[Rfam]
RNA sequence: CCACCACUUUAACAUGGAGGCGCUUGCUGUAUCAUCUUAAGAAUAAGUGCUUCCAUGUUUUAGUGUUGG
Numbered sequence: 001c002c003a004c005c006a007c008u009u010u011a012a013c014a015u016g017g018a019g020g021c022g023c024u025u026g027c028u029g030u031a032u033c034a035u036c037u038u039a040a041g042a043a044u045a046a047g048u049g050c051u052u053c054c055a056u057g058u059u060u061u062a063g064u065g066u067u068g069g
Stems, first nucleotide, its partner, number of pairs: 001069003005065004011059016028042001

Rfam assigns this 69-nucleotide RNA from Erinaceus europaeus to the family "mir-302 microRNA precursor family". The literature on the family includes a 2004 paper in Dev Biol by Suh et al., "Human embryonic stem cells express a unique set of microRNAs". The base pairs follow the family's consensus structure, which was predicted with RNAalifold. Rfam links the family to the GO terms RISC complex and miRNA-mediated post-transcriptional gene silencing.